A member of the RNA family "7SK RNA" from Amazona guildingii, 329 nucleotides long.
Rfam describes the family as follows. 7SK was discovered as an abundant small nuclear RNA in the mid-70s but a possible function has only recently been suggested.
The family's consensus secondary structure is taken from published work.
By type it is a non-coding RNA gene.
A reference for the family is Blencowe (2002), "Transcription: surprising role for an elusive small nuclear RNA", Curr Biol.
Taxonomically the source falls in Amazona (Eukaryota, Gnathostomata, Teleostomi, Dinosauria).
[Rfam]
RNA sequence: GGAUGUGAGGGCGAUCUGGCUGCGACAUCUGUCACCCCAUUGAUCGCCAGGGUUGAUUCAGCUGAUCUGGCUGGCUAGGCAGGUGUCCCCUUCCUCCCUCACCGCUGCACAUGUAUCCCUCCUGAAGCUGCGCUCUUGGUCGAAGAGGACAGCCUUCCCUAAUAUAGGCAGUACUGUUCAUUGGUCAUGGGUAUACAGUAGCUGCACUUGCCUGCUAGAACCUCCAGACAAGCUCAAGGUGCAGUUGUAGGAGAACAUAGGGUAAUCAAGCUUCCAAGACUGCAGACACAUCCAAGUGAGGCGCUGCACGUGGCAGGUUUUUUUUGUUU
Numbered sequence: 001g002g003a004u005g006u007g008a009g010g011g012c013g014a015u016c017u018g019g020c021u022g023c024g025a026c027a028u029c030u031g032u033c034a035c036c037c038c039a040u041u042g043a044u045c046g047c048c049a050g051g052g053u054u055g056a057u058u059c060a061g062c063u064g065a066u067c068u069g070g071c072u073g074g075c076u077a078g079g080c081a082g083g084u085g086u087c088c089c090c091u092u093c094c095u096c097c098c099u100c101a102c103c104g105c106u107g108c109a110c111a112u113g114u115a116u117c118c119c120u121c122c123u124g125a126a127g128c129u130g131c132g133c134u135c136u137u138g139g140u141c142g143a144a145g146a147g148g149a150c151a152g153c154c155u156u157c158c159c160u161a162a163u164a165u166a167g168g169c170a171g172u173a174c175u176g177u178u179c180a181u182u183g184g185u186c187a188u189g190g191g192u193a194u195a196c197a198g199u200a201g202c203u204g205c206a207c208u209u210g211c212c213u214g215c216u217a218g219a220a221c222c223u224c225c226a227g228a229c230a231a232g233c234u235c236a237a238g239g240u241g242c243a244g245u246u247g248u249a250g251g252a253g254a255a256c257a258u259a260g261g262g263u264a265a266u267c268a269a270g271c272u273u274c275c276a277a278g279a280c281u282g283c284a285g286a287c288a289c290a291u292c293c294a295a296g297u298g299a300g301g302c303g304c305u306g307c308a309c310g311u312g313g314c315a316g317g318u319u320u321u322u323u324u325u326g327u328u329u
Base pairs, nucleotide, nucleotide: 001108003106005102006101007100008099009098010097011096013093014092018090019089024087025086026085027084028083029082030081031080032079033078035074036073037070038069039068042067043066044065045064046062047061117171118168119167120166122139123138124137125136127135140162142160147158148157149156201271202270203269208264211261212260213259214258222253223252224251225250228248229247230246231245294329295328296327298324299323300322301321304316305315306314307313